[Rfam]
RNA sequence: GCACCUGAAUCUUCCCCAUUCUUUGCUGUUUCGUGCUGAUGUGGGAUGUGGGGACAGAUGGUGCCACAGUAGGAGCAGAGGAAGUCCAGCCGGGUUGUUUUCCUUUUGUGUUGGGGUCCGUCUCUACAGCUCUGUUGCACUU
Numbered sequence: 001g002c003a004c005c006u007g008a009a010u011c012u013u014c015c016c017c018a019u020u021c022u023u024u025g026c027u028g029u030u031u032c033g034u035g036c037u038g039a040u041g042u043g044g045g046a047u048g049u050g051g052g053g054a055c056a057g058a059u060g061g062u063g064c065c066a067c068a069g070u071a072g073g074a075g076c077a078g079a080g081g082a083a084g085u086c087c088a089g090c091c092g093g094g095u096u097g098u099u100u101u102c103c104u105u106u107u108g109u110g111u112u113g114g115g116g117u118c119c120g121u122c123u124c125u126a127c128a129g130c131u132c133u134g135u136u137g138c139a140c141u142u
Stems, first nucleotide, its partner, number of pairs: 001064005013054007022045005075135006088123002091120005102114002
Rfam assigns this 142-nucleotide RNA from Molossus molossus to the family "Small nucleolar RNA SNORA55". By type it is an H/ACA-box small nucleolar RNA. Rfam 15.1 lists 1,476 matches to the family in 616 species. Its family is annotated with nucleolus and RNA processing in the Gene Ontology. ACA55 is a member of the H/ACA class of snoRNA that guide the sites of modification of uridines to pseudouridines.